[Rfam]
RNA sequence: GCAAAGCGAUGAUGUGAAAGGUUGCGGCACACCCGGCCGCUUUGCCACGGGGUGUGACGGUAAUUUUCACGGAGUUAGUCUUAUUUUUAAAAUAGACGUAAGGAGGGAA
Numbered sequence: 001g002c003a004a005a006g007c008g009a010u011g012a013u014g015u016g017a018a019a020g021g022u023u024g025c026g027g028c029a030c031a032c033c034c035g036g037c038c039g040c041u042u043u044g045c046c047a048c049g050g051g052g053u054g055u056g057a058c059g060g061u062a063a064u065u066u067u068c069a070c071g072g073a074g075u076u077a078g079u080c081u082u083a084u085u086u087u088u089a090a091a092a093u094a095g096a097c098g099u100a101a102g103g104a105g106g107g108a109a
Stems, first nucleotide, its partner, number of pairs: 014070003018067004025059002028056007079108004085104004
Notes
A member of the RNA family "S10-Clostridia ribosomal protein leader" from Secundilactobacillus mixtipabuli, 109 nucleotides long. On this family, see Eckert and Weinberg, BMC Microbiol 2020: "Discovery of 20 novel ribosomal leader candidates in bacteria and archaea". The family's RNA type in Rfam is cis-regulatory leader. The match comes from Rfam's covariance-model search (37 bits).